RNA sequence: GGCCUCCUGAUGCUUAUGACAGGCUGUACUCUUGCACUUGACUGUGUAGAAAGAGGAGGCAGAGUAAACCCAUCCCACACACACCUCAGCACCGGCCCUUGCCUGGUCUGUAUUGUGAAUGGGAGGACAUGG
Numbered sequence: 001g002g003c004c005u006c007c008u009g010a011u012g013c014u015u016a017u018g019a020c021a022g023g024c025u026g027u028a029c030u031c032u033u034g035c036a037c038u039u040g041a042c043u044g045u046g047u048a049g050a051a052a053g054a055g056g057a058g059g060c061a062g063a064g065u066a067a068a069c070c071c072a073u074c075c076c077a078c079a080c081a082c083a084c085c086u087c088a089g090c091a092c093c094g095g096c097c098c099u100u101g102c103c104u105g106g107u108c109u110g111u112a113u114u115g116u117g118a119a120u121g122g123g124a125g126g127a128c129a130u131g132g
Stems, first nucleotide, its partner, number of pairs: 002060007020044003026037002029034001073124005087110003092105001094103003
Overview:
A member of the RNA family "Small nucleolar RNA SNORA51" from Camelus dromedarius, 132 nucleotides long.